[Rfam]
RNA sequence: AGGGGUGUAGUUUAAUGGUAGAACAGCGGUCUCCAACACCGUACGUUGUGGGUUCAAGUCCUGUCACCCCUG
Numbered sequence: 001a002g003g004g005g006u007g008u009a010g011u012u013u014a015a016u017g018g019u020a021g022a023a024c025a026g027c028g029g030u031c032u033c034c035a036a037c038a039c040c041g042u043a044c045g046u047u048g049u050g051g052g053u054u055c056a057a058g059u060c061c062u063g064u065c066a067c068c069c070c071u072g
Stems, first nucleotide, its partner, number of pairs: 001071007010024004026042005048064005
RNA: tRNA